[Rfam]
RNA: Small nucleolar RNA U19
Organism: Vigna angularis
RNA sequence: UAGCGGCUUAGUUAGGAGGUGCACAUUAAUCGGAUCCAAAUUCGUUUUUGGAUCCAUUCGGAGAAAGGCCUUUUGAAGGGACUCUGCGUUUCUUAUCGAUUGUUCCUCAAGCAGCCAUUCACAUUC
Numbered sequence: 001u002a003g004c005g006g007c008u009u010a011g012u013u014a015g016g017a018g019g020u021g022c023a024c025a026u027u028a029a030u031c032g033g034a035u036c037c038a039a040a041u042u043c044g045u046u047u048u049u050g051g052a053u054c055c056a057u058u059c060g061g062a063g064a065a066a067g068g069c070c071u072u073u074u075g076a077a078g079g080g081a082c083u084c085u086g087c088g089u090u091u092c093u094u095a096u097c098g099a100u101u102g103u104u105c106c107u108c109a110a111g112c113a114g115c116c117a118u119u120c121a122c123a124u125u126c
Base pairs, nucleotide, nucleotide: 004021005020007018008017009016033054034053035052036051037050063120064119065118067116068115069114072111073110074109075108077107078106079105080104081103082102085099